[Rfam]
RNA sequence: GAAGCGCGCCAGACCGCCGCUGGUGCACGUGCCGAAAGGCCGCACUGGAGGAACGUCCGGACUGCACAGGACGGCGUAGCAGCUAACGGCUGUCCACCGCGAGGUGAGGAUCAGAGCAACAGAGACGAGUCCGGAAGGAGUGCCGCAAGGCAGACCAGCCGGGGUGAAACGGGCAAUCUCUACGCGCAGCAAUACCAAGUAGGCCAGCGUUGACGUGGUUCCGCGGAGCUGGCGGGUAGGUAGCAUCGAGCCGGGUGGGCGACCCCCGGCCCAGAGUAAUGGCGGUCACGUGCGGGCAACCGCAUGCACAGAAUCCGGCUUAUCGGCGCGCUUCACAC
Number, nucleotide and partner (000 for none) at each position: 001g334002a333003a332004g331005c330006g329007c328008g327009c326010c325011a323012g287013a286014c285015c284016g283017c282018c281019g000020c048021u047022g046023g045024u044025g043026c042027a000028c000029g000030u000031g000032c000033c000034g000035a000036a000037a000038g000039g000040c000041c000042g026043c025044a024045c023046u022047g021048g020049a000050g000051g000052a000053a321054c000055g319056u000057c318058c317059g316060g315061a314062c189063u188064g187065c186066a000067c000068a000069g220070g219071a000072c000073g000074g185075c184076g183077u182078a181079g093080c092081a091082g090083c089084u000085a000086a000087c000088g000089g083090c082091u081092g080093u079094c108095c106096a105097c104098c103099g000100c000101g000102a000103g098104g097105u096106g095107a000108g094109g180110a179111u000112c000113a000114g178115a177116g174117c173118a000119a000120c000121a000122g000123a000124g000125a000126c000127g000128a000129g000130u000131c150132c149133g146134g000135a000136a000137g144138g143139a000140g000141u000142g000143c138144c137145g000146c133147a000148a000149g132150g131151c000152a000153g000154a000155c000156c000157a000158g165159c164160c000161g000162g000163g000164g159165u158166g000167a000168a000169a000170c000171g000172g000173g117174c116175a000176a000177u115178c114179u110180c109181u078182a077183c076184g075185c074186g065187c064188a063189g062190c000191a000192a000193u242194a241195c240196c239197a000198a000199g000200u000201a000202g000203g233204c232205c231206a230207g229208c228209g000210u000211u000212g000213a000214c225215g224216u223217g222218g000219u070220u069221c000222c217223g216224c215225g214226g000227a000228g208229c207230u206231g205232g204233c203234g000235g000236g000237u000238a000239g196240g195241u194242a193243g000244c000245a000246u000247c000248g000249a000250g270251c269252c268253g267254g266255g265256u000257g264258g263259g000260c000261g000262a000263c258264c257265c255266c254267c253268g252269g251270c250271c000272c000273a000274g000275a000276g000277u000278a000279a000280u000281g018282g017283c016284g015285g014286u013287c012288a000289c000290g000291u000292g000293c000294g000295g000296g000297c000298a000299a000300c000301c000302g000303c000304a000305u000306g000307c000308a000309c000310a000311g000312a000313a000314u061315c060316c059317g058318g057319c055320u000321u053322a000323u011324c000325g010326g009327c008328g007329c006330g005331c004332u003333u002334c001335a000336c000337a000338c000